[Rfam]
RNA sequence: UCUGGCAAUGAUGAGCCACUUGCCCUCACCGAGAACAAAGUUCGGUGAUGAGAAUCUUUGUUAUGGACUCGAGUUCUGAGCCGGG
Numbered sequence: 001u002c003u004g005g006c007a008a009u010g011a012u013g014a015g016c017c018a019c020u021u022g023c024c025c026u027c028a029c030c031g032a033g034a035a036c037a038a039a040g041u042u043c044g045g046u047g048a049u050g051a052g053a054a055u056c057u058u059u060g061u062u063a064u065g066g067a068c069u070c071g072a073g074u075u076c077u078g079a080g081c082c083g084g085g
Base pairs, nucleotide, nucleotide: 001085002084003083004082005081006080
This 85-nucleotide RNA from Suricata suricatta belongs to the Rfam family "Small nucleolar RNA SNORD103/SNORD85". The source organism's lineage runs through Eukaryota, Eutheria, Boreoeutheria, Carnivora and Suricata. Pairs were carried over by alignment from the consensus structure. It is annotated as a C/D-box small nucleolar RNA.